[Rfam]
RNA sequence: CUACCAAAAGGUGUUUUUGGGGGAAGGUUUUUAAAUAACCUUUACCAAUUUGAGCUAUUUGGGAGAGUAAAGACGACCACACUCCACAGUGAGCUGUAUCACUAAACAUAUAGUUCACUACUAUUUUGUGGCCUACAUU
Number, nucleotide and partner (000 for none) at each position: 001c000002u000003a000004c062005c061006a060007a059008a058009a000010g000011g000012u057013g056014u000015u054016u053017u052018u000019g049020g000021g000022g046023g045024a000025a043026g040027g039028u038029u037030u000031u000032u000033a000034a000035a000036u000037a029038a028039c027040c026041u000042u000043u025044a000045c023046c022047a000048a000049u019050u000051u000052g017053a016054g015055c000056u013057a012058u008059u007060u006061g005062g004063g000064a000065g000066a000067g000068u000069a000070a000071a000072g000073a000074c000075g133076a000077c131078c130079a129080c128081a127082c000083u000084c000085c000086a000087c000088a119089g118090u117091g116092a115093g114094c113095u112096g111097u110098a109099u108100c000101a000102c000103u000104a000105a000106a000107c000108a099109u098110a097111u096112a095113g094114u093115u092116c091117a090118c089119u088120a000121c000122u000123a000124u000125u000126u000127u081128g080129u079130g078131g077132c000133c075134u000135a000136c000137a000138u000139u000
The family of this 139-nucleotide sequence from Pteropus alecto is "Small nucleolar RNA SNORA4". The family has 7 seed sequences and 290 matches in Rfam 15.1. From the family's description: ACA4 is a member of the H/ACA class of snoRNA that guide the sites of modification of uridines to pseudouridines. It is annotated as an H/ACA-box small nucleolar RNA. The base pairs follow the family's consensus structure, which was predicted with PFOLD. The source organism's lineage runs through Eukaryota, Metazoa, Eumetazoa, Teleostomi and Pteropus.